Shown here is a 62-nucleotide RNA sequence from Anaeramoeba ignava, a member of the family "Selenocysteine insertion sequence 1". The family's RNA type in Rfam is cis-regulatory element.

RNA sequence: UUCAUUUUCAAUGAAGGUUUUAUUUUAAAUCAAUUGACGAAUAAAACCUGAUAAUUAAUGGA
Number, nucleotide and partner (000 for none) at each position: 001u062002u061003c060004a059005u058006u000007u000008u000009c000010a000011a000012u000013g000014a000015a000016g048017g047018u046019u045020u044021u043022a042023u041024u040025u039026u000027a000028a000029a000030u037031c036032a000033a000034u000035u000036g031037a030038c000039g025040a024041a023042u022043a021044a020045a019046a018047c017048c016049u000050g000051a000052u000053a000054a000055u000056u000057a000058a005059u004060g003061g002062a001
The incorporation of selenocysteine into a protein sequence is directed by an in-frame UGA codon (usually a stop codon) within the coding region of the mRNA. Selenoprotein mRNAs contain a conserved secondary structure in the 3' UTR that is required for the distinction of UGA stop from UGA selenocysteine. The selenocysteine insertion sequence (SECIS) is around 60 nt in length and adopts a hairpin structure which is sufficiently well-defined and conserved to act as a computational screen for selenoprotein genes.